[Rfam]
RNA sequence: CAUCCGAGCUAGGGGAGCCUGUCAAGGCUGAGAGUGGGUUCGUCCCAGACCCUUGGAACCUGACGCAGCUGGUACUGCCGUAGGGAAGCGUCAUCAUGCCUGA
Numbered sequence: 001c002a003u004c005c006g007a008g009c010u011a012g013g014g015g016a017g018c019c020u021g022u023c024a025a026g027g028c029u030g031a032g033a034g035u036g037g038g039u040u041c042g043u044c045c046c047a048g049a050c051c052c053u054u055g056g057a058a059c060c061u062g063a064c065g066c067a068g069c070u071g072g073u074a075c076u077g078c079c080g081u082a083g084g085g086a087a088g089c090g091u092c093a094u095c096a097u098g099c100c101u102g103a
Stems, first nucleotide, its partner, number of pairs: 006091001008089003011053004017028004035047004059084004065078004
RNA: TPP riboswitch aptamer (THI element)